[Rfam]
RNA sequence: CUCAGUAGCGAGGGGUUUUUUGGUGUGGCUUAGUCGCCUAUUUUACUUAUCAUCACGUUUGCGAAGCCAAUACGCAAAUAAUGCGACAAUGCAAC
Numbered sequence: 001c002u003c004a005g006u007a008g009c010g011a012g013g014g015g016u017u018u019u020u021u022g023g024u025g026u027g028g029c030u031u032a033g034u035c036g037c038c039u040a041u042u043u044u045a046c047u048u049a050u051c052a053u054c055a056c057g058u059u060u061g062c063g064a065a066g067c068c069a070a071u072a073c074g075c076a077a078a079u080a081a082u083g084c085g086a087c088a089a090u091g092c093a094a095c
Stems, first nucleotide, its partner, number of pairs: 008092003025037005053086002056083003061075003
Annotation:
Fst antitoxin sRNA: a 95-nucleotide sequence. Its family is annotated with mRNA binding in the Gene Ontology. It is annotated as an antitoxin RNA. On this family, see Fozo et al., Nucleic Acids Res 2010: "Abundance of type I toxin-antitoxin systems in bacteria: searches for new candidates and discovery of novel families".